Source information:
Small nucleolar RNA F1/F2/snoR5a: a 137-nucleotide sequence from Setaria viridis. Gene Ontology terms of the family: nucleolus and RNA processing. About the family: This family contains F1, F2 and snoR5a sequences, all of which are members of the the H/ACA class of snoRNA that guide the sites of modification of uridines to pseudouridines. Rfam classes the family as an H/ACA-box small nucleolar RNA. The base pairs follow the family's consensus structure, which was predicted with PFOLD. The match comes from Rfam's covariance-model search (135 bits).
RNA sequence: CAAUGCCAUUUGGUAUCUGAUGCACAGUCUUUUUUGGCUGUGUGUCUCGAAACAUGGCAAAAAACUAGGGGGAACGGAUCUUGCGACACUGGUCACUCAUUUAUGAGCUUCCAGUUACUAUAUGCCCGUUUACAUUA
Numbered sequence: 001c002a003a004u005g006c007c008a009u010u011u012g013g014u015a016u017c018u019g020a021u022g023c024a025c026a027g028u029c030u031u032u033u034u035u036g037g038c039u040g041u042g043u044g045u046c047u048c049g050a051a052a053c054a055u056g057g058c059a060a061a062a063a064a065c066u067a068g069g070g071g072g073a074a075c076g077g078a079u080c081u082u083g084c085g086a087c088a089c090u091g092g093u094c095a096c097u098c099a100u101u102u103a104u105g106a107g108c109u110u111c112c113a114g115u116u117a118c119u120a121u122a123u124g125c126c127c128g129u130u131u132a133c134a135u136u137a
Stems, first nucleotide, its partner, number of pairs: 004059006019046011073130005088115005096107002